RNA sequence: AAAGGAAGUGCGCCUCUGUUAUAUUCGCCUGACGGCGAGCGAUAUUGUCCUUUGGACAGUGAUAUUAUGCUUCGCAUCGUGAUAUUGCCU
Numbered sequence: 001a002a003a004g005g006a007a008g009u010g011c012g013c014c015u016c017u018g019u020u021a022u023a024u025u026c027g028c029c030u031g032a033c034g035g036c037g038a039g040c041g042a043u044a045u046u047g048u049c050c051u052u053u054g055g056a057c058a059g060u061g062a063u064a065u066u067a068u069g070c071u072u073c074g075c076a077u078c079g080u081g082a083u084a085u086u087g088c089c090u
Base pairs, nucleotide, nucleotide: 008040009039011037012036013035014034044060045059046058047057048056049055064080065079067077068076069075070074